The family of this 70-nucleotide RNA from Nesidiocoris tenuis is "mir-965 microRNA precursor family".
The family has 16 seed sequences and 224 matches in Rfam 15.1.
The family's consensus secondary structure was predicted with RNAalifold.
The match comes from Rfam's covariance-model search (64 bits).

RNA sequence: UACGGGAGAGGAAAAGUUGUAUUGCUUGUGUUUAUUCGAAUCAUAAGCGUAUAGCUUUUCCCCUUCUGUG
Numbered sequence: 001u002a003c004g005g006g007a008g009a010g011g012a013a014a015a016g017u018u019g020u021a022u023u024g025c026u027u028g029u030g031u032u033u034a035u036u037c038g039a040a041u042c043a044u045a046a047g048c049g050u051a052u053a054g055c056u057u058u059u060c061c062c063c064u065u066c067u068g069u070g
Stems, first nucleotide, its partner, number of pairs: 003068005010061002013058002017054005025047006